[Rfam]
RNA sequence: CCUCGUUCUCAGGGCAGGGUGCAAUUCCCCACCGGCGGUAUGCGGGGAAACCCCGCGAGCCCGCGAGCGCCCUGGCCGCGAGGCCGGGGGUCAGCAGAUCCGGUGAGAGGCCGGGGCCGACGGUUACAGUCCGGAUGAAAGAGGACGAGC
Numbered sequence: 001c002c003u004c005g006u007u008c009u010c011a012g013g014g015c016a017g018g019g020u021g022c023a024a025u026u027c028c029c030c031a032c033c034g035g036c037g038g039u040a041u042g043c044g045g046g047g048a049a050a051c052c053c054c055g056c057g058a059g060c061c062c063g064c065g066a067g068c069g070c071c072c073u074g075g076c077c078g079c080g081a082g083g084c085c086g087g088g089g090g091u092c093a094g095c096a097g098a099u100c101c102g103g104u105g106a107g108a109g110g111c112c113g114g115g116g117c118c119g120a121c122g123g124u125u126a127c128a129g130u131c132c133g134g135a136u137g138a139a140a141g142a143g144g145a146c147g148a149g150c
Stems, first nucleotide, its partner, number of pairs: 003148008017029003031130002033119002035064004059117002067095002099115005121133003